[Rfam]
RNA: Small nucleolar RNA SNORA15
RNA sequence: GCAUGGCUGAAUUCUGUAUUACUCUCUCAAUAGUGAAUGCAGUCAGACACCAUGCUAAAUUAUAAUUUUCACUCAUGGACUCAACAAAUGGAUAUGAGUGCUGCUCUGUGCCUCAUUCUUUUGUCCGGGUGAAUACAGAG
Number, nucleotide and partner (000 for none) at each position: 001g055002c054003a053004u052005g051006g050007c000008u000009g000010a000011a000012u000013u000014c042015u041016g040017u039018a038019u037020u000021a000022c000023u000024c000025u000026c000027u000028c000029a000030a000031u000032a000033g000034u000035g000036a000037a019038u018039g017040c016041a015042g014043u000044c000045a000046g000047a000048c000049a000050c006051c005052a004053u003054g002055c001056u000057a000058a000059a000060u000061u000062a000063u000064a000065a000066u000067u000068u133069u132070c131071a000072c000073u000074c129075a000076u127077g126078g125079a124080c000081u000082c000083a000084a000085c000086a000087a000088a122089u000090g120091g119092a000093u000094a116095u115096g114097a113098g112099u000100g000101c000102u000103g000104c000105u000106c000107u000108g000109u000110g000111c000112c098113u097114c096115a095116u094117u000118c000119u091120u090121u000122u088123g000124u079125c078126c077127g076128g000129g074130u000131g070132a069133a068134u000135a000136c000137a000138g000139a000140g000